[Rfam]
RNA sequence: CGAUUCACAGCAGGAGAGCACCGGCCCCGAGCCGGUCACCGAAGGCGCAAACUCCCAUGAACGCUCAGGUCCACGCACUGCAAGCACACA
Numbered sequence: 001c002g003a004u005u006c007a008c009a010g011c012a013g014g015a016g017a018g019c020a021c022c023g024g025c026c027c028c029g030a031g032c033c034g035g036u037c038a039c040c041g042a043a044g045g046c047g048c049a050a051a052c053u054c055c056c057a058u059g060a061a062c063g064c065u066c067a068g069g070u071c072c073a074c075g076c077a078c079u080g081c082a083a084g085c086a087c088a089c090a
Base pairs, nucleotide, nucleotide: 010081011080012079013078020036021035022034023033038070039069040068041066042065045064046063047062051058
Description:
The family of this 90-nucleotide RNA from Sphaerotilus montanus is "Glycine riboswitch aptamer". NCBI's taxonomy places the organism under Bacteria, Pseudomonadati, Pseudomonadota, Betaproteobacteria, Sphaerotilus. This family represents the bacterial glycine riboswitch. Gene Ontology term of the family: glycine biosynthetic process. The match comes from Rfam's covariance-model search (47 bits).